[Rfam]
RNA sequence: CCAACGUGGACAUCCUGUGAGUCGGCUCUCAUGUGGCUCUGUCCGUGUGGCGUAUGGGAGCGUAGCACUCUAGUGCCAUGACGUAAAGUCCCAUUCCACGACGUUGGAUAGCAUGCAUGUCCCCGGCGUUCAGCUGGUGAGGACGGCGUCCUGUAUAUUCCUAGGUCUUCCCAGAGCCUCAUGGGCCGUUACUGGGGAGGUAAACCAUGCAGUGCAUAAUC
Dot-bracket structure: ((((((((((((.((...(((....)))......))...)))))..((((.....((((..((.(.............)...))....))))...)))).)))))))...........................................((((((..........((((((...((((...)))).......)))))).......)))))).........
A member of the RNA family "Small nucleolar RNA SNORA73 family" from Pangasianodon hypophthalmus, 221 nucleotides long.
Gene Ontology terms of the family: nucleolus and RNA processing.
The literature on the family includes a 1996 paper in RNA by Enright et al., "5'ETS rRNA processing facilitated by four small RNAs: U14, E3, U17, and U3".
The family is grouped with related families in Rfam's "snR30-U17 clan".
The match comes from Rfam's covariance-model search (182 bits).
From the family's description: U17 (SNORA73A and SNORA73B) also known as E1 belongs to the H/ACA class of small nucleolar RNAs (snoRNAs). Vertebrate U17 is intron-encoded and ranges in length from 200-230 nucleotides, longer than most snoRNAs. It is one of the most abundant snoRNAs in human cells and is essential for the cleavage of pre-rRNA within the 5' external transcribed spacer (ETS). This cleavage leads to the formation of 18S rRNA. Regions of the U17 RNA are complementary to rRNA and act as guides for RNA/RNA interactions, although these regions do not seem to be well conserved between organisms.